[Rfam]
RNA: cspA thermoregulator
RNA sequence: GGUAAAAUGAGGUACAGUUCUGUAUAUGAGUGGCAUUUUCAGUAAAGAAGUAUUGCGUGUAGACGAUUUCGUUGCAUACCGCUUCUCUGCCGAUCCUUAUCUUAGUGCCUCAAGCAGUAACGACUCCAGUUUGUCUCUGUAUCGCCAAAUGGCGAAUUAAACACUCCAAAGGAAAUAUGCAAGAUGGCAAAGAUCAAAGGUCAAGUGAAGUGGUUCAACGAGUCUAAAGGUUUUGGUUUCAUCACUCCGGCCGAUGGCAGCAAAGACGUGUUCGUUCACUUCUCCGCUAUUCAGGGUAACGGUUUCAAAACUCUGGCCGAAGGCCAGAACGUCGAAUUCGAAAUCCAGGAUGGCCAGAAAGGCCCUUCAGCAGUUAAUGUAACUGCCCUGUAAUCUAGGUUGCUGCGGCAACGGUUAGGUUAGUCAUUUGACUAACGGAUAACA
Number, nucleotide and partner (000 for none) at each position: 001g000002g000003u000004a000005a019006a018007a000008u016009g015010a000011g000012g000013u000014a000015c009016a008017g000018u006019u005020c000021u000022g000023u000024a000025u000026a000027u249028g248029a246030g245031u244032g243033g000034c000035a000036u000037u000038u000039u000040c000041a000042g000043u000044a000045a000046a000047g240048a239049a000050g000051u000052a237053u236054u235055g000056c229057g000058u227059g000060u000061a000062g000063a000064c000065g224066a223067u222068u000069u000070c220071g219072u218073u217074g216075c000076a215077u000078a214079c213080c212081g000082c000083u000084u184085c183086u182087c000088u000089g180090c179091c000092g000093a000094u000095c000096c000097u000098u000099a000100u172101c171102u170103u169104a000105g167106u000107g000108c000109c000110u000111c133112a132113a131114g130115c000116a000117g000118u000119a000120a000121c000122g000123a000124c000125u000126c000127c000128a000129g000130u114131u113132u112133g111134u000135c000136u000137c000138u000139g000140u000141a000142u000143c000144g153145c152146c151147a000148a000149a000150u000151g146152g145153c144154g000155a000156a000157u000158u000159a000160a000161a000162c000163a000164c000165u000166c000167c105168a000169a103170a102171g101172g100173a000174a000175a000176u000177a000178u000179g090180c089181a000182a086183g085184a084185u000186g000187g000188c200189a000190a000191a000192g000193a000194u000195c000196a000197a000198a000199g000200g188201u000202c000203a000204a000205g000206u000207g000208a000209a000210g000211u000212g080213g079214u078215u076216c074217a073218a072219c071220g070221a000222g067223u066224c065225u000226a000227a058228a000229g056230g000231u000232u000233u000234u000235g054236g053237u052238u000239u048240c047241a000242u000243c032244a031245c030246u029247c000248c028249g027250g000251c000252c000253g345254a344255u343256g000257g000258c000259a000260g000261c000262a000263a000264a000265g273266a272267c000268g000269u000270g000271u000272u266273c265274g000275u000276u334277c000278a332279c331280u000281u329282c000283u328284c327285c000286g325287c323288u322289a000290u000291u316292c315293a314294g313295g312296g000297u000298a000299a000300c000301g000302g000303u000304u000305u000306c000307a000308a000309a000310a000311c000312u295313c294314u293315g292316g291317c000318c000319g000320a000321a000322g288323g287324c000325c286326a000327g284328a283329a281330c000331g279332u278333c000334g276335a000336a000337u000338u000339c000340g000341a000342a000343a255344u254345c253346c000347a000348g000349g000350a000351u000352g365353g364354c000355c000356a000357g000358a000359a000360a000361g000362g000363c000364c353365c352366u000367u000368c390369a389370g388371c385372a384373g383374u382375u381376a000377a000378u000379g000380u000381a375382a374383c373384u372385g371386c000387c000388c370389u369390g368391u000392a000393a000394u000395c414396u413397a000398g000399g000400u411401u410402g409403c408404u000405g000406c000407g000408g403409c402410a401411a400412c000413g396414g395415u000416u000417a000418g000419g436420u435421u434422a433423g432424u431425c430426a000427u000428u000429u000430g425431a424432c423433u422434a421435a420436c419437g000438g000439a000440u000441a000442a000443c000444a000